[Rfam]
RNA sequence: ACGGUCGCCUGUAACUGGCGUAAGGUGGGCAACCACCGGGGAGCAGGAGAUUUUCGACCGCGACAGCCGAACGCCUGGGCUCUUCCG
Numbered sequence: 001a002c003g004g005u006c007g008c009c010u011g012u013a014a015c016u017g018g019c020g021u022a023a024g025g026u027g028g029g030c031a032a033c034c035a036c037c038g039g040g041g042a043g044c045a046g047g048a049g050a051u052u053u054u055c056g057a058c059c060g061c062g063a064c065a066g067c068c069g070a071a072c073g074c075c076u077g078g079g080c081u082c083u084u085c086c087g
Stems, first nucleotide, its partner, number of pairs: 003052004008047005015040002017075005025036004065081004
The family of this 87-nucleotide sequence from Trichloromonas acetexigens is "ZMP/ZTP riboswitch aptamer (pfl RNA motif)". A search with the family's covariance model found it, with a score of 58 bits. The base pairs follow the family's consensus structure, which is taken from published work.